RNA: FMN riboswitch aptamer (RFN element)
RNA sequence: UUAUAUCUUCGGGGUUAGGUGAAAGUCCUGACCGGCAGUAGAGCCUGCGAGCCUUUUGGGUUGAUUCGGUGAGAUUCCGAAGCCGACGGUAAAGUCCGGAUGAAAGAAGAUAAGC
Numbered sequence: 001u002u003a004u005a006u007c008u009u010c011g012g013g014g015u016u017a018g019g020u021g022a023a024a025g026u027c028c029u030g031a032c033c034g035g036c037a038g039u040a041g042a043g044c045c046u047g048c049g050a051g052c053c054u055u056u057u058g059g060g061u062u063g064a065u066u067c068g069g070u071g072a073g074a075u076u077c078c079g080a081a082g083c084c085g086a087c088g089g090u091a092a093a094g095u096c097c098g099g100a101u102g103a104a105a106g107a108a109g110a111u112a113a114g115c
Base pairs, nucleotide, nucleotide: 004112005111006110007109008108009107010106017029018028019027031095032094033085034084035048036047037046038045043083044082051061052060053059065081066080067079068078069077087098088097089096